[Rfam]
RNA sequence: GCGGCGGUAGUCUAGCCUGGUUUAGGAUGGCGGCCUUCCACGCGGUUGCGAAGAAAGCCGUUGAUCCCGGGUUCAAAUCCCGGCCGCCGCA
Number, nucleotide and partner (000 for none) at each position: 001g090002c089003g088004g087005c086006g085007g084008u000009a000010g028011u027012c026013u025014a000015g000016c000017c000018u000019g000020g000021u000022u000023u000024a000025g013026g012027a011028u010029g000030g061031c060032g059033g058034c057035c000036u000037u000038c000039c000040a000041c000042g000043c000044g000045g000046u000047u000048g000049c000050g000051a000052a000053g000054a000055a000056a000057g034058c033059c032060g031061u030062u000063g000064a000065u000066c000067c083068c082069g081070g080071g079072u000073u000074c000075a000076a000077a000078u000079c071080c070081c069082g068083g067084c007085c006086g005087c004088c003089g002090c001091a000
About this RNA: The record is a 91-nucleotide RNA sequence from Pyrobaculum aerophilum, which matches "tRNA" in Rfam. Rfam describes the family as follows. Transfer RNA (tRNA) molecules are approximately 80 nucleotides in length. By type it is a transfer RNA. The family is grouped with related families in Rfam's "tRNA clan".